[Rfam]
RNA sequence: GACCAAUGAAAGCGAUGAUGCUUACGCGCUCAUCGUUUUUACCUCCCUGUUGGACUUCGCCGGGCCCUGUGCCCGGCAUUUUUU
Numbered sequence: 001g002a003c004c005a006a007u008g009a010a011a012g013c014g015a016u017g018a019u020g021c022u023u024a025c026g027c028g029c030u031c032a033u034c035g036u037u038u039u040u041a042c043c044u045c046c047c048u049g050u051u052g053g054a055c056u057u058c059g060c061c062g063g064g065c066c067c068u069g070u071g072c073c074c075g076g077c078a079u080u081u082u083u084u
Base pairs, nucleotide, nucleotide: 008040009039010038011037012036013035014034015033016032017031018030059077060076061075062074063073064072065071

Singlet oxygen resistance RNA X: an 84-nucleotide sequence from Loktanella sp. S4079. On this family, see Berghoff et al., Mol Microbiol 2009: "Photooxidative stress-induced and abundant small RNAs in Rhodobacter sphaeroides". From the family's description: SorX (RSs2461)like SorY is a singlet oxygen induced sRNA that counteracts oxidative stress by targeting mRNA for a transporter in Rhodobacter. It also has an impact on resistance against organic hydroperoxides. It targets SD sequence of potA mRNA via an aSD sequence. The aSD sequence and some neighbouring nucleotides are identical to the one of SorY (targets takP mRNA). It scores 51 bits against the family's covariance model.